[Rfam]
RNA sequence: UCAAAUGUUUUCUAGGGUUCCGCAAAUGUUUUUGGUCUGGUCCGAGAGAAAACUCACAGUACCAUUUGCUGUGCCACGGAGGGAUAAAAGCCCGGGAGAA
Numbered sequence: 001u002c003a004a005a006u007g008u009u010u011u012c013u014a015g016g017g018u019u020c021c022g023c024a025a026a027u028g029u030u031u032u033u034g035g036u037c038u039g040g041u042c043c044g045a046g047a048g049a050a051a052a053c054u055c056a057c058a059g060u061a062c063c064a065u066u067u068g069c070u071g072u073g074c075c076a077c078g079g080a081g082g083g084a085u086a087a088a089a090g091c092c093c094g095g096g097a098g099a100a
Stems, first nucleotide, its partner, number of pairs: 007053006015043002020040002022037001023034004055073007075095001077098001081093003
Guanidine-I riboswitch aptamer: a 100-nucleotide RNA from Bacillus benzoevorans. It scores 87 bits against the family's covariance model. The pairing is the family consensus, mapped onto this sequence.